The record is a 70-nucleotide RNA sequence from Salmo trutta, which matches "miR-430 microRNA precursor family" in Rfam. Its Rfam clan is "mir-290 clan". It scores 56 bits against the family's covariance model. The literature on the family includes a 2005 paper in Science by Giraldez et al., "MicroRNAs regulate brain morphogenesis in zebrafish". Taxonomically the source falls in Salmo (Eukaryota, Deuterostomia, Actinopteri, Salmoninae). Rfam 15.1 lists 24,817 matches to the family in 105 species.
RNA sequence: AUAGAUACCCGAAAACUAGCACUGACUUGUCUAUAUAAUGCAGUAAGUGCUACUUGUUGGGGUAGUUUGA
Numbered sequence: 001a002u003a004g005a006u007a008c009c010c011g012a013a014a015a016c017u018a019g020c021a022c023u024g025a026c027u028u029g030u031c032u033a034u035a036u037a038a039u040g041c042a043g044u045a046a047g048u049g050c051u052a053c054u055u056g057u058u059g060g061g062g063u064a065g066u067u068u069g070a
Stems, first nucleotide, its partner, number of pairs: 004066001006064005013057001015055001018051006025044003